RNA sequence: GACCGCUUCUUGAACGAGAUCUCCAGCCGCCCAUCGGACGGCCAACCUGGCUCACUUCCCCGGAGCCAGGCGGGCAUGAACGAUAGGCGCGGAUGGGGAUCUGGCUCAAGAAGCCACAACCA
Numbered sequence: 001g002a003c004c005g006c007u008u009c010u011u012g013a014a015c016g017a018g019a020u021c022u023c024c025a026g027c028c029g030c031c032c033a034u035c036g037g038a039c040g041g042c043c044a045a046c047c048u049g050g051c052u053c054a055c056u057u058c059c060c061c062g063g064a065g066c067c068a069g070g071c072g073g074g075c076a077u078g079a080a081c082g083a084u085a086g087g088c089g090c091g092g093a094u095g096g097g098g099a100u101c102u103g104g105c106u107c108a109a110g111a112a113g114c115c116a117c118a119a120c121c122a
Base pairs, nucleotide, nucleotide: 010109011108012107013106015104018101019100021098022097023096024095025094027092028091029090030089031086033084034083041075042074043073046070047069048068049067050066051065052064053063
RNA: mraW RNA
Organism: Arthrobacter sp. ISL-48